The family of this 247-nucleotide RNA from Scyliorhinus torazame is "Small nucleolar RNA SNORD17".

[Rfam]
RNA sequence: AUCAAUUAGUGCUUCAGAUCCAUCCACUCGUCUUGGUGGCGUGGAGUCCAGUCAAACUCUGUGUCCUUCCUUAUCAAUUGCCGUAACGCCGUCGUCCGUGCUCAGGUUUCAUGGAUUCAUCAACUUCCUCGGCAAGUUCAUACCGAACCUAGCAGCACGGACGACGGCGUUACGGCAAUUGAUAAGGAAGGACACGGAGUUUGACUGGACUCCACGCCACCAAGACGAGUGGAUGGAUCUGAAGCAC
Numbered sequence: 001a002u003c004a005a006u007u008a009g010u011g012c013u014u015c016a017g018a019u020c021c022a023u024c025c026a027c028u029c030g031u032c033u034u035g036g037u038g039g040c041g042u043g044g045a046g047u048c049c050a051g052u053c054a055a056a057c058u059c060u061g062u063g064u065c066c067u068u069c070c071u072u073a074u075c076a077a078u079u080g081c082c083g084u085a086a087c088g089c090c091g092u093c094g095u096c097c098g099u100g101c102u103c104a105g106g107u108u109u110c111a112u113g114g115a116u117u118c119a120u121c122a123a124c125u126u127c128c129u130c131g132g133c134a135a136g137u138u139c140a141u142a143c144c145g146a147a148c149c150u151a152g153c154a155g156c157a158c159g160g161a162c163g164a165c166g167g168c169g170u171u172a173c174g175g176c177a178a179u180u181g182a183u184a185a186g187g188a189a190g191g192a193c194a195c196g197g198a199g200u201u202u203g204a205c206u207g208g209a210c211u212c213c214a215c216g217c218c219a220c221c222a223a224g225a226c227g228a229g230u231g232g233a234u235g236g237a238u239c240u241g242a243a244g245c246a247c
Stems, first nucleotide, its partner, number of pairs: 010246005017239004024232007032224002036220002041215004046210008055201007067189007080176003085171018
From the family's description: The snoRNA HBI-43 belongs to the C/D family of snoRNAs, guiding 2'O-ribose methylation at position U3797 of the 28S rRNA. Pseudouridylation in position U3797 is predicted to be guided by the H/ACA snoRNA ACA48.
The source organism's lineage runs through Eukaryota, Metazoa, Craniata, Galeoidea and Scyliorhinus.